[Rfam]
RNA sequence: GUUUUGAUGGCAGUGAAGUUAGUGAUUGCGAAGUAAUGGAUACAAUCAGCUAACUACACUGCCUACAAACC
Numbered sequence: 001g002u003u004u005u006g007a008u009g010g011c012a013g014u015g016a017a018g019u020u021a022g023u024g025a026u027u028g029c030g031a032a033g034u035a036a037u038g039g040a041u042a043c044a045a046u047c048a049g050c051u052a053a054c055u056a057c058a059c060u061g062c063c064u065a066c067a068a069a070c071c
Stems, first nucleotide, its partner, number of pairs: 003069004009063002012060004017055006023048006030041001
mir-34 microRNA precursor family: a 71-nucleotide RNA sequence from Fulmarus glacialis. Pairs were carried over by alignment from the consensus structure, which was predicted with RNAalifold. For this family Rfam cites "Vertebrate microRNA genes" (Lim et al., Science, 2003). Rfam describes the family as follows. Human mir-34a was discovered computationally and later experimentally verified. The mature sequence is excised from the 5' arm of the hairpin.